[Rfam]
RNA sequence: AAGUUUGAAAUUCCUCAGUAGUUAACUGCAGCUGGUUCUUUAAAUUUUCGGCAGUUAACUGCCGAGGGGCAU
Numbered sequence: 001a002a003g004u005u006u007g008a009a010a011u012u013c014c015u016c017a018g019u020a021g022u023u024a025a026c027u028g029c030a031g032c033u034g035g036u037u038c039u040u041u042a043a044a045u046u047u048u049c050g051g052c053a054g055u056u057a058a059c060u061g062c063c064g065a066g067g068g069g070c071a072u
Base pairs, nucleotide, nucleotide: 012068013067015065016064018062019061020060021059022058023057024056025055026054027053028052029051

Rfam assigns this 72-nucleotide RNA sequence from Medicago truncatula to the family "MIR2629 microRNA precursor family". The organism belongs to Medicago, within Eukaryota.